[Rfam]
RNA sequence: CGACAAGCUGUCUAGGGUUCCGCUGGUUAGCACAGGCGCACUCCUUUUGAUGAAAGGAAUCGCCGGUUGUUAAGCAGGCCUGGUCCGAGAGACGGCAUAUAGCAGGGCGGUUGUUUUACAGCUUAGCCCGCUAUAGUACACGGAAGGAUAAAAGCCUGGGAGAC
Numbered sequence: 001c002g003a004c005a006a007g008c009u010g011u012c013u014a015g016g017g018u019u020c021c022g023c024u025g026g027u028u029a030g031c032a033c034a035g036g037c038g039c040a041c042u043c044c045u046u047u048u049g050a051u052g053a054a055a056g057g058a059a060u061c062g063c064c065g066g067u068u069g070u071u072a073a074g075c076a077g078g079c080c081u082g083g084u085c086c087g088a089g090a091g092a093c094g095g096c097a098u099a100u101a102g103c104a105g106g107g108c109g110g111u112u113g114u115u116u117u118a119c120a121g122c123u124u125a126g127c128c129c130g131c132u133a134u135a136g137u138a139c140a141c142g143g144a145a146g147g148a149u150a151a152a153a154g155c156c157u158g159g160g161a162g163a164c
Stems, first nucleotide, its partner, number of pairs: 007096006015086002020083002022080001023077003027073006097137001098135005139159001141162001145157003
RNA: Guanidine-I riboswitch aptamer
Organism: Bacillus sp. FJAT-26390